[Rfam]
RNA sequence: UUCUUAUCGAGAAAGGUGGAGGGACUGGCCCGACGAAACCUUAGCAGCAGACUCUCUAAAGUACUGUGCUAAUUCCAGAAGCUAUUCGGCUUAAAGAUAAGAA
Numbered sequence: 001u002u003c004u005u006a007u008c009g010a011g012a013a014a015g016g017u018g019g020a021g022g023g024a025c026u027g028g029c030c031c032g033a034c035g036a037a038a039c040c041u042u043a044g045c046a047g048c049a050g051a052c053u054c055u056c057u058a059a060a061g062u063a064c065u066g067u068g069c070u071a072a073u074u075c076c077a078g079a080a081g082c083u084a085u086u087c088g089g090c091u092u093a094a095a096g097a098u099a100a101g102a103a
Stems, first nucleotide, its partner, number of pairs: 001103008013042005021031003025078004043070004048066002050062001053059001074095001079092005
RNA: SAM riboswitch aptamer (S box leader)